[Rfam]
RNA sequence: UUCCAGAGCGGGGGUUUUGGGGGCGAGAUGAGCUUACAUGGAACCAACUGGCCCACAAAGUCCCUCUUCUGGGG
Numbered sequence: 001u002u003c004c005a006g007a008g009c010g011g012g013g014g015u016u017u018u019g020g021g022g023g024c025g026a027g028a029u030g031a032g033c034u035u036a037c038a039u040g041g042a043a044c045c046a047a048c049u050g051g052c053c054c055a056c057a058a059a060g061u062c063c064c065u066c067u068u069c070u071g072g073g074g
Base pairs, nucleotide, nucleotide: 003072004071005070006069007068008067010065011064012063013062015060016059017058018057019056021054022053023052024051026049027048029046030045
Dot-bracket structure: ..((((((.((((.(((((.((((.((.((..............)).)).)))).))))).)))).))))))..